[Rfam]
RNA: mir-2807 microRNA precursor family
Organism: Bombyx mori
RNA sequence: UUGUUUCAAAUUUGUAUGGAUUUGGAACGUUUGCCUACGUUUUCCGCUAGAGGCGCUGUUCCAACUCCAUACAAAUUUGAGUUA
Numbered sequence: 001u002u003g004u005u006u007c008a009a010a011u012u013u014g015u016a017u018g019g020a021u022u023u024g025g026a027a028c029g030u031u032u033g034c035c036u037a038c039g040u041u042u043u044c045c046g047c048u049a050g051a052g053g054c055g056c057u058g059u060u061c062c063a064a065c066u067c068c069a070u071a072c073a074a075a076u077u078u079g080a081g082u083u084a
Stems, first nucleotide, its partner, number of pairs: 008078009018068001020066001022064008034052001036050001039047002